Shown here is a 120-nucleotide sequence from Salvia splendens, a member of the family "MIR828 microRNA precursor family". Rfam links the family to the GO terms miRNA-mediated post-transcriptional gene silencing and RISC complex. Pairs were carried over by alignment from the consensus structure, which was predicted with RNAalifold. The family has 16 seed sequences and 204 matches in Rfam 15.1. A reference for the family is Rajagopalan et al. (2006), "A diverse and evolutionarily fluid set of microRNAs in Arabidopsis thaliana", Genes Dev. NCBI's taxonomy places the organism under Eukaryota, asterids, Lamiales, Salvia subgen. Calosphace, core Calosphace.
[Rfam]
RNA sequence: AUAACAUUUCUUGCUCAAAUGAGUAUUCCAAAAAGAUGUAGAAUGCUACGUACAACAUAUAAGAGUUUUCAAGUGCAUCUGCUUCAUUUGUGAGAUGCUCAUUUGGGCAAGUAAUGUUAU
Numbered sequence: 001a002u003a004a005c006a007u008u009u010c011u012u013g014c015u016c017a018a019a020u021g022a023g024u025a026u027u028c029c030a031a032a033a034a035g036a037u038g039u040a041g042a043a044u045g046c047u048a049c050g051u052a053c054a055a056c057a058u059a060u061a062a063g064a065g066u067u068u069u070c071a072a073g074u075g076c077a078u079c080u081g082c083u084u085c086a087u088u089u090g091u092g093a094g095a096u097g098c099u100c101a102u103u104u105g106g107g108c109a110a111g112u113a114a115u116g117u118u119a120u
Stems, first nucleotide, its partner, number of pairs: 004117005010111018029092002